[Rfam]
RNA sequence: CGCGUCCAACGGCAACGUUCGACGUGACGGAGCAGAGGUCAGCCGAGGCCAUAGUAAUCGCACGCCCGUGGACGGGCCUCGCGGUGAAGGGC
Numbered sequence: 001c002g003c004g005u006c007c008a009a010c011g012g013c014a015a016c017g018u019u020c021g022a023c024g025u026g027a028c029g030g031a032g033c034a035g036a037g038g039u040c041a042g043c044c045g046a047g048g049c050c051a052u053a054g055u056a057a058u059c060g061c062a063c064g065c066c067c068g069u070g071g072a073c074g075g076g077c078c079u080c081g082c083g084g085u086g087a088a089g090g091g092c
Stems, first nucleotide, its partner, number of pairs: 001026002004023003008019004039046002048092003057085005
The family of this 92-nucleotide RNA sequence from Ectothiorhodospira magna is "Group II catalytic intron D1-D4-1". Pairs were carried over by alignment from the consensus structure. The source organism's lineage runs through Bacteria, Pseudomonadati, Pseudomonadota, Ectothiorhodospiraceae and Ectothiorhodospira. From the family's description: Group II introns are found in rRNA, tRNA and mRNA of organelles in fungi, plants and protists, and also in mRNA in bacteria.